[Rfam]
RNA sequence: UGACUAGCGGAGGCUAGAAGGGA
Dot-bracket structure: ...(((((....)))))......
Shown here is a 23-nucleotide RNA from Lentivirus humimdef1, a member of the family "HIV-1 stem-loop 3 Psi packaging signal". Rfam classes the family as a cis-regulatory element. Lineage of the source: Viruses > Artverviricota > Revtraviricetes > Orthoretrovirinae > Lentivirus humimdef1. A reference for the family is Yu et al. (2008), "MS3D structural elucidation of the HIV-1 packaging signal", Proc Natl Acad Sci U S A. Its family is annotated with viral RNA genome packaging in the Gene Ontology.